[Rfam]
RNA sequence: GGGGUGCACAAUAGCUUACCUCCACGUGGUGCACCCUGGGCAAUGUAUACUUAUACAGCAAAAAGGUCUAU
Numbered sequence: 001g002g003g004g005u006g007c008a009c010a011a012u013a014g015c016u017u018a019c020c021u022c023c024a025c026g027u028g029g030u031g032c033a034c035c036c037u038g039g040g041c042a043a044u045g046u047a048u049a050c051u052u053a054u055a056c057a058g059c060a061a062a063a064a065g066g067u068c069u070a071u
Stems, first nucleotide, its partner, number of pairs: 001037007018030003044057005
Rfam assigns this 71-nucleotide RNA sequence from Rodentolepis nana to the family "HDV ribozyme from F. prausnitzii". The family's consensus secondary structure is taken from published work. The literature on the family includes a 2009 paper in Science by Webb et al., "Widespread occurrence of self-cleaving ribozymes". Rfam links the family to the GO term catalytic activity. NCBI's taxonomy places the organism under Eukaryota, Opisthokonta, Platyhelminthes, Cestoda, Rodentolepis.